[Rfam]
RNA: ASpks TB sRNA
Organism: Streptomyces boluensis
RNA sequence: CUUCAACGAGCCCAGGUACAGGGGCCGUUCGGCGUCGCGGUCCUCGCCGUACGUGGCGAGCAGCGCCUGCGCCUC
Numbered sequence: 001c002u003u004c005a006a007c008g009a010g011c012c013c014a015g016g017u018a019c020a021g022g023g024g025c026c027g028u029u030c031g032g033c034g035u036c037g038c039g040g041u042c043c044u045c046g047c048c049g050u051a052c053g054u055g056g057c058g059a060g061c062a063g064c065g066c067c068u069g070c071g072c073c074u075c
Base pairs, nucleotide, nucleotide: 015025017023032070033069038065039064043060044059045058047056048055049054